Shown here is a 33-nucleotide sequence from Sander lucioperca, a member of the family "L31-Firmicutes ribosomal protein leader". By type it is a cis-regulatory leader. The literature on the family includes a 2020 paper in BMC Microbiol by Eckert and Weinberg, "Discovery of 20 novel ribosomal leader candidates in bacteria and archaea".

RNA sequence: CUAUGUAUUUAGAAAAAGUCAUGGCAGAAGGAA
Numbered sequence: 001c002u003a004u005g006u007a008u009u010u011a012g013a014a015a016a017a018g019u020c021a022u023g024g025c026a027g028a029a030g031g032a033a
Stems, first nucleotide, its partner, number of pairs: 001024005008017003